[Rfam]
RNA sequence: CUGGGGUACGGUGACAUGUACCCCAAAACGUGGUCAGGGAUGGUGGUGGGCGCCCUGUGCGCGCUGGCCGGGGUGCUGACCAUCGCCAUGCCCGUGCCCGUCAUCGUCAACAAC
Numbered sequence: 001c002u003g004g005g006g007u008a009c010g011g012u013g014a015c016a017u018g019u020a021c022c023c024c025a026a027a028a029c030g031u032g033g034u035c036a037g038g039g040a041u042g043g044u045g046g047u048g049g050g051c052g053c054c055c056u057g058u059g060c061g062c063g064c065u066g067g068c069c070g071g072g073g074u075g076c077u078g079a080c081c082a083u084c085g086c087c088a089u090g091c092c093c094g095u096g097c098c099c100g101u102c103a104u105c106g107u108c109a110a111c112a113a114c
Base pairs, nucleotide, nucleotide: 002113004111008107009106010105011104013102014101015100018097019096020095021094037077038076040074050062051061

Rfam assigns this 114-nucleotide RNA from Ficedula albicollis to the family "Potassium channel RNA editing signal".
The match comes from Rfam's covariance-model search (99 bits).
The organism belongs to Ficedula, within Eukaryota.
From the family's description: This family represents a group of sequences related to the human potassium channel Kv1.1 hairpin element which directs the efficient modification of an adenosine to inosine by an adenosine deaminase acting on RNA (ADAR).